[Rfam]
RNA sequence: AGAAACUUCGUGCGGACAACCAGGACUUUAAACCGUGUUGCUUGGUCUUAAGUUAAAACUCAUAAUGUAAGACUAGGCGUCAAGUCCUUGGAGAGAUUAAAUAUGUUUCAUCGCCGAAAUUUAAGUGCUCAUCUUAGCGCCCUUUUGUUAGUCCGGUGUCGCAACUACCUUUGCAAGUAGAUUGUGUUGGGAUUAGGGAGGGCUGGUAGGUCACACAUUC
Numbered sequence: 001a002g003a004a005a006c007u008u009c010g011u012g013c014g015g016a017c018a019a020c021c022a023g024g025a026c027u028u029u030a031a032a033c034c035g036u037g038u039u040g041c042u043u044g045g046u047c048u049u050a051a052g053u054u055a056a057a058a059c060u061c062a063u064a065a066u067g068u069a070a071g072a073c074u075a076g077g078c079g080u081c082a083a084g085u086c087c088u089u090g091g092a093g094a095g096a097u098u099a100a101a102u103a104u105g106u107u108u109c110a111u112c113g114c115c116g117a118a119a120u121u122u123a124a125g126u127g128c129u130c131a132u133c134u135u136a137g138c139g140c141c142c143u144u145u146u147g148u149u150a151g152u153c154c155g156g157u158g159u160c161g162c163a164a165c166u167a168c169c170u171u172u173g174c175a176a177g178u179a180g181a182u183u184g185u186g187u188u189g190g191g192a193u194u195a196g197g198g199a200g201g202g203c204u205g206g207u208a209g210g211u212c213a214c215a216c217a218u219u220c
Base pairs, nucleotide, nucleotide: 008016009015020091021090023087024086025085026084040078041077042076043075044074045073046072047071048070049069050068133210134209135208136207139203140202141201142200143199146198148196149195150194151193152192153191157186158183159176161174162173163172164171
Shown here is a 220-nucleotide sequence from Waltiozyma pijperi, a member of the family "Small nucleolar RNA snR35".
By type it is an H/ACA-box small nucleolar RNA.
Clan: SNORA13 clan.